[Rfam]
RNA: Bacillaceae-1 RNA
RNA sequence: GUCAGUCGAGGCUACCUAAGGUCGCGACAUCCAUGUCGCAACGGUCGCAUGACCCACUUCGUGUGGG
Dot-bracket structure: ..........((.(((.......(((((......)))))...))).))....(((((.....)))))
Numbered sequence: 001g002u003c004a005g006u007c008g009a010g011g012c013u014a015c016c017u018a019a020g021g022u023c024g025c026g027a028c029a030u031c032c033a034u035g036u037c038g039c040a041a042c043g044g045u046c047g048c049a050u051g052a053c054c055c056a057c058u059u060c061g062u063g064u065g066g067g
Stems, first nucleotide, its partner, number of pairs: 011048002014045003024039005053067005